Rfam assigns this 398-nucleotide part of an RNA from Saccharolobus islandicus to the family "Archaeal large subunit ribosomal RNA". The base pairs follow the family's consensus structure, which is taken from published work. Rfam's curators put it in the seed alignment.
[Rfam]
RNA sequence: GGCAGUAACAGCGAGGAGGGGUAAGACUCCCCUCCGCCGGAAGGGCUAGGGUUUCCCGGCAAUGGUCGUCAGCCGGGAGUGAGCCGGUCCUAAGGCGAGGCCUAAUAGGUACUCGCCGAAAGGGAAGUGGGUUAAUAUUCCCACGCCCUAGGGGUAGGCGCGGUAACGCAAGCUGGACUCCUGACGGAUCUGGGUAGGGUGAGUGGGGCCACCGCCCCAUCCAAGCGCUUAAGUCCCUGGAGUGCCGUAAUGGUGAGAAGGGGACGAAGGCGUGAUGGGGUUCCCUUUGGGGACUUCACCCAAUUCCAGGUUCCCUUGAAAAGGGAGUCCAGAACGAUCCCCUAGGACCGUACCGAGAACCGACACUGGUGCCCCUGGGUGAGAAGCCCAAGGCGUCU
Number, nucleotide and partner (000 for none) at each position: 001g000002g000003c000004a000005g000006u000007a000008a000009c000010a000011g000012c000013g000014a000015g000016g034017a033018g032019g031020g030021g029022u000023a000024a000025g000026a000027c000028u000029c021030c020031c019032c018033u017034c016035c395036g394037c393038c392039g000040g000041a000042a000043g374044g373045g372046c371047u000048a000049g354050g353051g000052u000053u000054u078055c077056c076057c075058g074059g073060c000061a000062a000063u071064g070065g000066u000067c000068g000069u000070c064071a063072g000073c059074c058075g057076g056077g055078a054079g000080u000081g000082a000083g000084c000085c350086g349087g348088u000089c123090c122091u000092a000093a000094g117095g116096c115097g114098a113099g112100g110101c109102c108103u000104a000105a000106u000107a000108g102109g101110u100111a000112c099113u098114c097115g096116c095117c094118g000119a000120a000121a000122g090123g089124g000125a000126a000127g144128u143129g142130g141131g140132u000133u000134a000135a000136u000137a000138u000139u000140c131141c130142c129143a128144c127145g000146c000147c346148c345149u344150a343151g342152g341153g340154g339155u000156a000157g000158g000159c000160g000161c000162g000163g000164u000165a000166a000167c000168g000169c000170a000171a000172g000173c000174u000175g000176g000177a000178c000179u000180c325181c324182u323183g000184a000185c000186g313187g312188a311189u310190c309191u308192g307193g306194g305195u000196a000197g301198g300199g299200u298201g297202a000203g220204u219205g218206g217207g216208g000209c000210c000211a000212c000213c000214g000215c000216c207217c206218c205219a204220u203221c000222c000223a000224a000225g273226c272227g271228c270229u000230u000231a000232a000233g000234u264235c263236c262237c261238u260239g000240g000241a000242g000243u000244g254245c253246c252247g000248u000249a000250a000251u000252g246253g245254u244255g000256a000257g000258a000259a000260g238261g237262g236263g235264a234265c000266g000267a000268a000269g000270g228271c227272g226273u225274g000275a000276u000277g000278g000279g000280g000281u000282u000283c000284c000285c289286u000287u000288u000289g285290g000291g000292g000293a000294c000295u000296u000297c201298a200299c199300c198301c197302a000303a000304u000305u194306c193307c192308a191309g190310g189311u188312u187313c186314c000315c000316u000317u000318g000319a000320a000321a000322a000323g182324g181325g180326a000327g000328u000329c000330c000331a000332g000333a000334a000335c000336g000337a000338u000339c154340c153341c152342c151343u150344a149345g148346g147347a000348c087349c086350g085351u000352a000353c050354c049355g000356a000357g000358a000359a000360c369361c368362g000363a000364c000365a000366c000367u000368g361369g360370u000371g046372c045373c044374c043375c000376u390377g389378g388379g387380u000381g000382a000383g000384a000385a000386g000387c379388c378389c377390a376391a000392g038393g037394c036395g035396u000397c000398u000